The family of this 73-nucleotide sequence from Albula goreensis is "mir-551 microRNA precursor family". Gene Ontology terms of the family: RISC complex and miRNA-mediated post-transcriptional gene silencing. Taxonomically the source falls in Albula (Eukaryota, Opisthokonta, Actinopterygii, Elopocephalai). The match comes from Rfam's covariance-model search (52 bits). The literature on the family includes a 2008 paper in Genome Res by Murchison et al., "Conservation of small RNA pathways in platypus".
[Rfam]
RNA sequence: UACCCUCGGGGAUCAAGGGUGGGUGAAGCCUGUGCUAAACUGCCAGGCGACCCACUCAUGAUUUCAGAGGUCA
Numbered sequence: 001u002a003c004c005c006u007c008g009g010g011g012a013u014c015a016a017g018g019g020u021g022g023g024u025g026a027a028g029c030c031u032g033u034g035c036u037a038a039a040c041u042g043c044c045a046g047g048c049g050a051c052c053c054a055c056u057c058a059u060g061a062u063u064u065c066a067g068a069g070g071u072c073a
Stems, first nucleotide, its partner, number of pairs: 004070004009065006017057001021053004028048004